[Rfam]
The record is a 134-nucleotide sequence from Tupaia belangeri, which matches "U11 spliceosomal RNA" in Rfam. Clan: U1 clan. It scores 119 bits against the family's covariance model.
RNA sequence: AAAAAGAGCUUCUGUCGUGGGUGGCACACGCCGGGCGGCUCGUUCACUCUGCGUGCAGAAUCGACAUCAAGAGAUUUUGGAAGCAUAAUUUUUUGGUAAUUGGGCAGCUGGUGAUCAUUGGUCCCGGCACCCUG
Numbered sequence: 001a002a003a004a005a006g007a008g009c010u011u012c013u014g015u016c017g018u019g020g021g022u023g024g025c026a027c028a029c030g031c032c033g034g035g036c037g038g039c040u041c042g043u044u045c046a047c048u049c050u051g052c053g054u055g056c057a058g059a060a061u062c063g064a065c066a067u068c069a070a071g072a073g074a075u076u077u078u079g080g081a082a083g084c085a086u087a088a089u090u091u092u093u094u095g096g097u098a099a100u101u102g103g104g105c106a107g108c109u110g111g112u113g114a115u116c117a118u119u120g121g122u123c124c125c126g127g128c129a130c131c132c133u134g
Stems, first nucleotide, its partner, number of pairs: 008084005013026005027055005033049003037045002056079007102132003107128005113123004
Lineage of the source: Eukaryota > Eumetazoa > Sarcopterygii > Euarchontoglires > Tupaia belangeri.